[Rfam]
RNA sequence: CUCUAAUAUCAUUCGAGAUUAUAUGUCUUACGAGAUAUAUACAGUGAAAUGUUAGAAUAUUAAAGGGGUUUACUCCAUCCUUAAGUGGUAAAUAUAAAUUUUAAGAUGAGGUAUUAGUAGGUGUAUGUCGAAAAUAUAGUAGUCUUA
Numbered sequence: 001c002u003c004u005a006a007u008a009u010c011a012u013u014c015g016a017g018a019u020u021a022u023a024u025g026u027c028u029u030a031c032g033a034g035a036u037a038u039a040u041a042c043a044g045u046g047a048a049a050u051g052u053u054a055g056a057a058u059a060u061u062a063a064a065g066g067g068g069u070u071u072a073c074u075c076c077a078u079c080c081u082u083a084a085g086u087g088g089u090a091a092a093u094a095u096a097a098a099u100u101u102u103a104a105g106a107u108g109a110g111g112u113a114u115u116a117g118u119a120g121g122u123g124u125a126u127g128u129c130g131a132a133a134a135u136a137u138a139g140u141a142g143u144c145u146u147a
Base pairs, nucleotide, nucleotide: 003055004054005053006052007051008050009049013047014046020041021040022039023038024037025036026035027034028033079088080087102147103146104145105144106143107142108140111137112136113135114134120129121128
Notes:
This 147-nucleotide sequence belongs to the Rfam family "RT-14 RNA". It is annotated as a small RNA. The sequence is in the family's curated seed alignment.